[Rfam]
RNA sequence: AGGAUAUAUCAAAGAGACUUUCUAGGGCUGUGAAACCAGGAUCUCGUAAUGCUAUGACCAAAGAUUGAAAUUUUGCAUAGGAUACCAUAGUCACUCAGUAGUGCUGUUUUCCUGAGGAAAUACAAGA
Dot-bracket structure: .((.(((......(.((..((.(..((........)).)))..)).)......))).))............(((.(..((((....((((.((((....))))))))..))))..).))).......
Small nucleolar RNA SNORA25: a 127-nucleotide sequence from Nomascus leucogenys. Rfam 15.1 lists 1,129 matches to the family in 449 species. It scores 100 bits against the family's covariance model. The family's RNA type in Rfam is H/ACA-box small nucleolar RNA. Rfam's curators write: ACA25 is a member of the H/ACA class of snoRNA that guide the sites of modification of uridines to pseudouridines. NCBI's taxonomy places the organism under Eukaryota, Gnathostomata, Euteleostomi, Dipnotetrapodomorpha, Nomascus. The family's consensus secondary structure was predicted with RNAfold.